[Rfam]
RNA sequence: CCUGUAAACGGCGCGCCUCCGCGGCUCCAAUUUAUUUCGGGGCAGUUCUUGCCCGGGGAGGAUACUUAAUGCUCGGGUCCGCGCAGCAGAGUCAGUCCUCCCAGAGCCCGCCGGGACCCCCAUGCGUCUGGCAGGCGCGGGGGCCGGCCACAUU
Numbered sequence: 001c002c003u004g005u006a007a008a009c010g011g012c013g014c015g016c017c018u019c020c021g022c023g024g025c026u027c028c029a030a031u032u033u034a035u036u037u038c039g040g041g042g043c044a045g046u047u048c049u050u051g052c053c054c055g056g057g058g059a060g061g062a063u064a065c066u067u068a069a070u071g072c073u074c075g076g077g078u079c080c081g082c083g084c085a086g087c088a089g090a091g092u093c094a095g096u097c098c099u100c101c102c103a104g105a106g107c108c109c110g111c112c113g114g115g116a117c118c119c120c121c122a123u124g125c126g127u128c129u130g131g132c133a134g135g136c137g138c139g140g141g142g143g144c145c146g147g148c149c150a151c152a153u154u
Stems, first nucleotide, its partner, number of pairs: 038055003042052004057101007071087003076082001110148005117143005124138005

The record is a 154-nucleotide sequence from Giardia duodenalis, which matches "Small nucleolar RNA GlsR24" in Rfam. Rfam links the family to the GO terms nucleolus and RNA processing. For this family Rfam cites "Evolutionarily divergent spliceosomal snRNAs and a conserved non-coding RNA processing motif in Giardia lamblia" (Hudson et al., Nucleic Acids Res, 2012). The sequence is in the family's curated seed alignment. The organism belongs to Giardia duodenalis, within Eukaryota. The family's RNA type in Rfam is H/ACA-box small nucleolar RNA. Pairs were carried over by alignment from the consensus structure, which was predicted with WAR.